[Rfam]
RNA sequence: AUAAAAGCGAUGAAAGAGAUUGUUUUAUCCUAAAUCAUUUUCAGAGAGCCGGCGGUUGGUGUGAGUUCGGCAGUGAUAGAUAAAACUUAUCACUCUUGAGCUGAGUCUUGAAAAGUAAUGAGUAGAGUAACUUCGUAUGGCUGCGUUAAAGUCGGGAAUUUGUUAGAAUUCUGCUGAGCGGCACAAGUAAUUGUGCAAUUUGGGUGGUACCACGGGUUUAAUUUUUAGCUCGUCCCAGUU
Numbered sequence: 001a002u003a004a005a006a007g008c009g010a011u012g013a014a015a016g017a018g019a020u021u022g023u024u025u026u027a028u029c030c031u032a033a034a035u036c037a038u039u040u041u042c043a044g045a046g047a048g049c050c051g052g053c054g055g056u057u058g059g060u061g062u063g064a065g066u067u068c069g070g071c072a073g074u075g076a077u078a079g080a081u082a083a084a085a086c087u088u089a090u091c092a093c094u095c096u097u098g099a100g101c102u103g104a105g106u107c108u109u110g111a112a113a114a115g116u117a118a119u120g121a122g123u124a125g126a127g128u129a130a131c132u133u134c135g136u137a138u139g140g141c142u143g144c145g146u147u148a149a150a151g152u153c154g155g156g157a158a159u160u161u162g163u164u165a166g167a168a169u170u171c172u173g174c175u176g177a178g179c180g181g182c183a184c185a186a187g188u189a190a191u192u193g194u195g196c197a198a199u200u201u202g203g204g205u206g207g208u209a210c211c212a213c214g215g216g217u218u219u220a221a222u223u224u225u226u227a228g229c230u231c232g233u234c235c236c237a238g239u240u
Base pairs, nucleotide, nucleotide: 007101008100015096016095017094018093023085024084025083026082027081028080037074038073039072048071049070050069051068052067104132105131107127108126109125134145135144136143181196182195183194184193185192186191201237202236203235204234212233213232214231215230216229217228218227
T-box leader: a 240-nucleotide sequence from Hydrogenoanaerobacterium saccharovorans.
A reference for the family is Grundy et al. (1994), "Interaction between the acceptor end of tRNA and the T box stimulates antitermination in the Bacillus subtilis tyrS gene: a new role for the discriminator base", J Bacteriol.
Rfam's curators write: Uncharged tRNA acts as the effector for transcription antitermination of genes in the T-box leader family. T-boxes are found upstream of many aminoacyl-tRNA synthetase genes and some amino acid biosynthetic genes usually in Gram-positive bacteria. The anticodon of a specific tRNA base pairs to a specifier sequence within the T-box motif, and the NCCA acceptor tail of the tRNA base pairs to a conserved bulge in the T-box antiterminator hairpin.